Shown here is a 140-nucleotide RNA from Mus spicilegus, a member of the family "Small nucleolar RNA SNORA48". Rfam's curators write: The snoRNA ACA 48 has been identified to guide pseudouridylation of the residue U3797 in the 28S rRNA subunit. Rfam classes the family as an H/ACA-box small nucleolar RNA.
RNA sequence: CCCCUCUAGCAAUGGCAAAGAGACAACUUGGUGGUGGUUUUCUUAUAUAGGUCAAGGGCAGAGCAGAUGGCAGUCCUUUGUUCAUCCUAGCUUGAUGCCUGGCUUGGUGGCCAAAGAUGGUUUAUGCCUAGGACACAUAA
Numbered sequence: 001c002c003c004c005u006c007u008a009g010c011a012a013u014g015g016c017a018a019a020g021a022g023a024c025a026a027c028u029u030g031g032u033g034g035u036g037g038u039u040u041u042c043u044u045a046u047a048u049a050g051g052u053c054a055a056g057g058g059c060a061g062a063g064c065a066g067a068u069g070g071c072a073g074u075c076c077u078u079u080g081u082u083c084a085u086c087c088u089a090g091c092u093u094g095a096u097g098c099c100u101g102g103c104u105u106g107g108u109g110g111c112c113a114a115a116g117a118u119g120g121u122u123u124a125u126g127c128c129u130a131g132g133a134c135a136c137a138u139a140a
Stems, first nucleotide, its partner, number of pairs: 002058004013049002018044003022038001024036002027033001079135005094128001096126001100124003104120003108116001